[Rfam]
RNA sequence: AACCAUCGAAACGGCGAUCUCCUCCUCCCAAUGCCGUUCGAUAUGGAUCAGCAACUCUCCUCCUCCCAGUUGCUGAUCAGGUUCAAAAGCCCGACGCACCUCCUCCCGCGUCGGGCUUUUUAU
Numbered sequence: 001a002a003c004c005a006u007c008g009a010a011a012c013g014g015c016g017a018u019c020u021c022c023u024c025c026u027c028c029c030a031a032u033g034c035c036g037u038u039c040g041a042u043a044u045g046g047a048u049c050a051g052c053a054a055c056u057c058u059c060c061u062c063c064u065c066c067c068a069g070u071u072g073c074u075g076a077u078c079a080g081g082u083u084c085a086a087a088a089g090c091c092c093g094a095c096g097c098a099c100c101u102c103c104u105c106c107c108g109c110g111u112c113g114g115g116c117u118u119u120u121u122a123u
Stems, first nucleotide, its partner, number of pairs: 007040003011037006046078010087118011